[Rfam]
RNA sequence: ACCGAUAAAGCCUAACCCUUCGCGAGGAGGGGGCGGAAAGCUACGGGUCUCCGUAAUGCCUUGCGACUAAGCGCGCCGGGCAUCGGGGAGACGGCCGGGUUGCCGAAG
Numbered sequence: 001a002c003c004g005a006u007a008a009a010g011c012c013u014a015a016c017c018c019u020u021c022g023c024g025a026g027g028a029g030g031g032g033g034c035g036g037a038a039a040g041c042u043a044c045g046g047g048u049c050u051c052c053g054u055a056a057u058g059c060c061u062u063g064c065g066a067c068u069a070a071g072c073g074c075g076c077c078g079g080g081c082a083u084c085g086g087g088g089a090g091a092c093g094g095c096c097g098g099g100u101u102g103c104c105g106a107a108g
Base pairs, nucleotide, nucleotide: 003105004104011036012035016031017030018029019028020027021026034094039101040100041099042098044097045096046095047092048091049090050089051088052087
Annotation:
The family of this 108-nucleotide RNA from Oryzomonas rubra is "c-di-GMP-I-GGC riboswitch aptamer".